[Rfam]
RNA sequence: AAUCACACUGUCAAUGAAUGGAUUCACCCGUGAGAUGAUGUGAUUGUUCCAUCUAUGAUGAGGAUGUGGCAUAUUAAUUUCGUGCGAUGGCUGGUAAUAUGAUGCCACAUCCUCGUCCUAGGUGAAACAACCACGUCAUCUCGCGGGUGAAUCCAUUUAUUAAUAGUGUGGUU
Numbered sequence: 001a002a003u004c005a006c007a008c009u010g011u012c013a014a015u016g017a018a019u020g021g022a023u024u025c026a027c028c029c030g031u032g033a034g035a036u037g038a039u040g041u042g043a044u045u046g047u048u049c050c051a052u053c054u055a056u057g058a059u060g061a062g063g064a065u066g067u068g069g070c071a072u073a074u075u076a077a078u079u080u081c082g083u084g085c086g087a088u089g090g091c092u093g094g095u096a097a098u099a100u101g102a103u104g105c106c107a108c109a110u111c112c113u114c115g116u117c118c119u120a121g122g123u124g125a126a127a128c129a130a131c132c133a134c135g136u137c138a139u140c141u142c143g144c145g146g147g148u149g150a151a152u153c154c155a156u157u158u159a160u161u162a163a164u165a166g167u168g169u170g171g172u173u
Stems, first nucleotide, its partner, number of pairs: 001173007009165003013161003017157003021153008030144004035139005041133002044130005051123002054120002057117002063111003069105004073098004083094001
RNA: MIR807 microRNA precursor family
Organism: Oryza meridionalis